[Rfam]
RNA: U1 spliceosomal RNA
RNA sequence: UUACUUACCUGGCAUGAGUUUCUGCAGCACAAGAAUUGUGGAGACUCAGUUAUUUGUCUUGGCAUUGCACUGAGCCCUGACGAAUAACUGUGGACUGGCUAAGGUCAGCUCCGGAUGCAUCAUUUUUGAGUUCGUCCCUCAUUUGGGGCA
Numbered sequence: 001u002u003a004c005u006u007a008c009c010u011g012g013c014a015u016g017a018g019u020u021u022c023u024g025c026a027g028c029a030c031a032a033g034a035a036u037u038g039u040g041g042a043g044a045c046u047c048a049g050u051u052a053u054u055u056g057u058c059u060u061g062g063c064a065u066u067g068c069a070c071u072g073a074g075c076c077c078u079g080a081c082g083a084a085u086a087a088c089u090g091u092g093g094a095c096u097g098g099c100u101a102a103g104g105u106c107a108g109c110u111c112c113g114g115a116u117g118c119a120u121c122a123u124u125u126u127u128g129a130g131u132u133c134g135u136c137c138c139u140c141a142u143u144u145g146g147g148g149c150a
Base pairs, nucleotide, nucleotide: 012118013117014116015115016047017046018045019044020043021042022041023040024039025038026037048089049088050087051086055082056081057080059079061077062075063074091113092112093111095108096107098105099104138147139146140145